[Rfam]
RNA: MIR2907 microRNA precursor family
Organism: Oryza glumipatula
RNA sequence: GCGUCCCCUCUUCCGCCCACUCAGCCGCCACGCGGCAGUUGAGCGAGGGCCUCGGGGUGACGC
Numbered sequence: 001g002c003g004u005c006c007c008c009u010c011u012u013c014c015g016c017c018c019a020c021u022c023a024g025c026c027g028c029c030a031c032g033c034g035g036c037a038g039u040u041g042a043g044c045g046a047g048g049g050c051c052u053c054g055g056g057g058u059g060a061c062g063c
Stems, first nucleotide, its partner, number of pairs: 001061001005057004015050004020043006028035002
Dot-bracket structure: (...((((......((((.((((((..((....))..))))))...))))...))))...)..